[Rfam]
RNA: 7SK RNA
Organism: Eschrichtius robustus
RNA sequence: GAAUGUGAGGGCAAUCUGACUGUGACAUCUGUCACCCCAUUGAUCACGAGGGUUGAUUUGGCUGAUCUGUCUGGCUAGGCAGGUGUCCCCUUCCUCCCUCAGUGCUCCACAGGCAUCCCUCCCAAAGCUGCACACUUAGUUGAAGAGGACAACCUUCACUUAUAGAGGAGAACCAGCCUUUAGUCAAGGCUACAUGAGUAGCUGCACUCCCCUGCUAGAACCUCCAAUCAAGCUCUCCAGGUCCAUUUGCAGGAAAACGUAGGGUAGUCAAACUUCCAAGAUUGCAGACACAUCCAAAUGUGGUGCUGCAUGUGGCAGUCUGCCUUUCUUU
Numbered sequence: 001g002a003a004u005g006u007g008a009g010g011g012c013a014a015u016c017u018g019a020c021u022g023u024g025a026c027a028u029c030u031g032u033c034a035c036c037c038c039a040u041u042g043a044u045c046a047c048g049a050g051g052g053u054u055g056a057u058u059u060g061g062c063u064g065a066u067c068u069g070u071c072u073g074g075c076u077a078g079g080c081a082g083g084u085g086u087c088c089c090c091u092u093c094c095u096c097c098c099u100c101a102g103u104g105c106u107c108c109a110c111a112g113g114c115a116u117c118c119c120u121c122c123c124a125a126a127g128c129u130g131c132a133c134a135c136u137u138a139g140u141u142g143a144a145g146a147g148g149a150c151a152a153c154c155u156u157c158a159c160u161u162a163u164a165g166a167g168g169a170g171a172a173c174c175a176g177c178c179u180u181u182a183g184u185c186a187a188g189g190c191u192a193c194a195u196g197a198g199u200a201g202c203u204g205c206a207c208u209c210c211c212c213u214g215c216u217a218g219a220a221c222c223u224c225c226a227a228u229c230a231a232g233c234u235c236u237c238c239a240g241g242u243c244c245a246u247u248u249g250c251a252g253g254a255a256a257a258c259g260u261a262g263g264g265u266a267g268u269c270a271a272a273c274u275u276c277c278a279a280g281a282u283u284g285c286a287g288a289c290a291c292a293u294c295c296a297a298a299u300g301u302g303g304u305g306c307u308g309c310a311u312g313u314g315g316c317a318g319u320c321u322g323c324c325u326u327u328c329u330u331u
Base pairs, nucleotide, nucleotide: 001108003106006101007100008099009098010097011096014092018090024087025086026085027084028083029082030081031080032079033078035074036073038069039068042067043066044065045064047061116171117170118168119167120166121165122139124137125136127135140162142160148157149156201273203271207267208266210264211263212262213261214260215259223254224253225252229249230248231247232246296331297330298329300326302324303323304322305319306318307317308316309315